Eukaryotic large subunit ribosomal RNA: a 600-nucleotide part of an RNA from Chrysochloris asiatica. The organism belongs to Chrysochloris, within Eukaryota. It scores 1656 bits against the family's covariance model. On this family, see Yusupov et al., Science 2001: "Crystal structure of the ribosome at 5.5 A resolution".
RNA sequence: GGGAAGUCGGCAAGUUGGAUCCAAAACUUCGGGAUAAAGAUUGGCUCUAAGGGUUGGGUCGGUCAGGCUGGGGCAACGAAGCGGGGCUGGGCGCGCCGUCGCUGGACUAGGGAACACCACCACCCCCACACACACUCCCGCCGGUGUCUGCCCCCUCAGUCCCUCCCGCCCCACUCUGCACGCGUGCUCCGCUCGCCCAGCUAGCCCUCCCGCCCUCCCCGAGGCGGGAGCGGGUGGGGGGGCGGCAGGUUGCGCGGCGUAGGGACGGGGUCAGCCCUUUCGCGCGCGCGGGGGUAGGGUGAGGAGGGGUUGUCCAGUCCCGCGCCAGCGCCAGUUCCGCAUGGCGGGCGCCUAGCAGCCAAUUUAGAACUGGUGCAGACCAGGGGAAUCCGACUGUUUAAUUAAAACAACGCAUUGGGAACCCCCCUCCUUCCCCGCCCCCCCCCCUGUGUUGACGCCUAUGAUCUGAAUGUCCAAGUGAAGAAAUUCAAUAAAGCGCAGGUGAAAGGCUGGAGUAACUGUGACUCUCUUAAGGUAGCCAAAUGCCUUCUCAUCUAAUUGGUGAUGCGCCUGAAUGGAUGAAGAAGAUUCCCACUGUCC
Numbered sequence: 001g002g003g004a005a006g007u008c009g010g011c012a013a014g015u016u017g018g019a020u021c022c023a024a025a026a027c028u029u030c031g032g033g034a035u036a037a038a039g040a041u042u043g044g045c046u047c048u049a050a051g052g053g054u055u056g057g058g059u060c061g062g063u064c065a066g067g068c069u070g071g072g073g074c075a076a077c078g079a080a081g082c083g084g085g086g087c088u089g090g091g092c093g094c095g096c097c098g099u100c101g102c103u104g105g106a107c108u109a110g111g112g113a114a115c116a117c118c119a120c121c122a123c124c125c126c127c128a129c130a131c132a133c134a135c136u137c138c139c140g141c142c143g144g145u146g147u148c149u150g151c152c153c154c155c156u157c158a159g160u161c162c163c164u165c166c167c168g169c170c171c172c173a174c175u176c177u178g179c180a181c182g183c184g185u186g187c188u189c190c191g192c193u194c195g196c197c198c199a200g201c202u203a204g205c206c207c208u209c210c211c212g213c214c215c216u217c218c219c220c221g222a223g224g225c226g227g228g229a230g231c232g233g234g235u236g237g238g239g240g241g242g243c244g245g246c247a248g249g250u251u252g253c254g255c256g257g258c259g260u261a262g263g264g265a266c267g268g269g270g271u272c273a274g275c276c277c278u279u280u281c282g283c284g285c286g287c288g289c290g291g292g293g294g295u296a297g298g299g300u301g302a303g304g305a306g307g308g309g310u311u312g313u314c315c316a317g318u319c320c321c322g323c324g325c326c327a328g329c330g331c332c333a334g335u336u337c338c339g340c341a342u343g344g345c346g347g348g349c350g351c352c353u354a355g356c357a358g359c360c361a362a363u364u365u366a367g368a369a370c371u372g373g374u375g376c377a378g379a380c381c382a383g384g385g386g387a388a389u390c391c392g393a394c395u396g397u398u399u400a401a402u403u404a405a406a407a408c409a410a411c412g413c414a415u416u417g418g419g420a421a422c423c424c425c426c427c428u429c430c431u432u433c434c435c436c437g438c439c440c441c442c443c444c445c446c447c448u449g450u451g452u453u454g455a456c457g458c459c460u461a462u463g464a465u466c467u468g469a470a471u472g473u474c475c476a477a478g479u480g481a482a483g484a485a486a487u488u489c490a491a492u493a494a495a496g497c498g499c500a501g502g503u504g505a506a507a508g509g510c511u512g513g514a515g516u517a518a519c520u521g522u523g524a525c526u527c528u529c530u531u532a533a534g535g536u537a538g539c540c541a542a543a544u545g546c547c548u549u550c551u552c553a554u555c556u557a558a559u560u561g562g563u564g565a566u567g568c569g570c571c572u573g574a575a576u577g578g579a580u581g582a583a584g585a586a587g588a589u590u591c592c593c594a595c596u597g598u599c600c
Base pairs, nucleotide, nucleotide: 001600002599003598018042019041020040021039027032043371044370046368047367048366049365050364051363052360053359054358055357056356058349059348060347062345063344064343065342067175069173071171072170073169074168081165083163084162085161086160087159088158089157090156091155093153095151096150098148100146101145102144103143104142105141372376384593385592386591387590388589389588390587395409396408397407412450413449414448417445418444419443456577457510458509459508462506463503465501468499471498472497473496479490480489481488482487512528513527514526515525516524530534551565552564553563554562555561